Bacterial small subunit ribosomal RNA: a 351-nucleotide part of an RNA from Hanamia caeni.

RNA sequence: GGUUUAAAGGGUGCGUAGGUGGGCAGGUAAGUCAGUGGUGAAAUCUCCGGGCUUAACCCGGAAACUGCCGUUGAUACUAUUUGUCUUGAAUAUUGUGGAGGUAAGCGGAAUAUGUCAUGUAGCGGUGAAAUGCUUAGAUAUGACAUAGAACACCAAUUGCGAAGGCAGCUUACUACACAAUGAUUGACGCUGAGGCACGAAAGCGUGGGGAUCAAACAGGAUUAGAUACCCUGGUAGUCCACGCCCUAAACGAUGAUUACUCGACAUACGCGAUACACUGUGUGUGUCUGAGCGAAAGCAUUAAGUAAUCCACCUGGGAAGUACGUUCGCAAGAAUGAAACUCAAAGGAAU
Numbered sequence: 001g002g003u004u005u006a007a008a009g010g011g012u013g014c015g016u017a018g019g020u021g022g023g024c025a026g027g028u029a030a031g032u033c034a035g036u037g038g039u040g041a042a043a044u045c046u047c048c049g050g051g052c053u054u055a056a057c058c059c060g061g062a063a064a065c066u067g068c069c070g071u072u073g074a075u076a077c078u079a080u081u082u083g084u085c086u087u088g089a090a091u092a093u094u095g096u097g098g099a100g101g102u103a104a105g106c107g108g109a110a111u112a113u114g115u116c117a118u119g120u121a122g123c124g125g126u127g128a129a130a131u132g133c134u135u136a137g138a139u140a141u142g143a144c145a146u147a148g149a150a151c152a153c154c155a156a157u158u159g160c161g162a163a164g165g166c167a168g169c170u171u172a173c174u175a176c177a178c179a180a181u182g183a184u185u186g187a188c189g190c191u192g193a194g195g196c197a198c199g200a201a202a203g204c205g206u207g208g209g210g211a212u213c214a215a216a217c218a219g220g221a222u223u224a225g226a227u228a229c230c231c232u233g234g235u236a237g238u239c240c241a242c243g244c245c246c247u248a249a250a251c252g253a254u255g256a257u258u259a260c261u262c263g264a265c266a267u268a269c270g271c272g273a274u275a276c277a278c279u280g281u282g283u284g285u286g287u288c289u290g291a292g293c294g295a296a297a298g299c300a301u302u303a304a305g306u307a308a309u310c311c312a313c314c315u316g317g318g319a320a321g322u323a324c325g326u327u328c329g330c331a332a333g334a335a336u337g338a339a340a341c342u343c344a345a346a347g348g349a350a351u
Stems, first nucleotide, its partner, number of pairs: 001314003009311001011198004016192001018191003022085007030078002032074009046062006089185003092181006100174007107151001111147008122133003159166002203244006213237001217233004255310006263288010292299002316343003325336004
Dot-bracket structure: (((.....(.((((.(.(((.(((((((.(((((((((((.....((((((.....))))))...)))))))))..)))))))))...(((((((((..((((((((...((((((((...(((......)))......))))))))...).......((....)).))))))).)))))).)))...))))..))))....((((((....(...((((.........))))...).))))))..........((((((..((((((((((......))))))))))...((....)).....)))))))))).(((......((((....))))....)))........
Rfam links the family to the GO terms structural constituent of ribosome and ribosome. Taxonomically the source falls in Hanamia (Bacteria, Bacteroidota, Chitinophagales, Chitinophagaceae).